[Rfam]
RNA sequence: ACCUCAGGGAAAGGAUUCUGCCCUCGGCCCCACUCCAGCGGUCGCCAGACGGGUGGUGGGCACAGAAUCCGGGCUCUGCUUGUG
Numbered sequence: 001a002c003c004u005c006a007g008g009g010a011a012a013g014g015a016u017u018c019u020g021c022c023c024u025c026g027g028c029c030c031c032a033c034u035c036c037a038g039c040g041g042u043c044g045c046c047a048g049a050c051g052g053g054u055g056g057u058g059g060g061c062a063c064a065g066a067a068u069c070c071g072g073g074c075u076c077u078g079c080u081u082g083u084g
Base pairs, nucleotide, nucleotide: 001083002082005078006077007076008075009074013070014069015068016067017066018065019064020063024060025059027057030056031055032054033053034052035051
Rfam assigns this 84-nucleotide RNA from Phyllostomus discolor to the family "mir-541 microRNA precursor family". For this family Rfam cites "Mouse microRNA profiles determined with a new and sensitive cloning method" (Takada et al., Nucleic Acids Res, 2006). The base pairs follow the family's consensus structure, which was predicted with RNAalifold.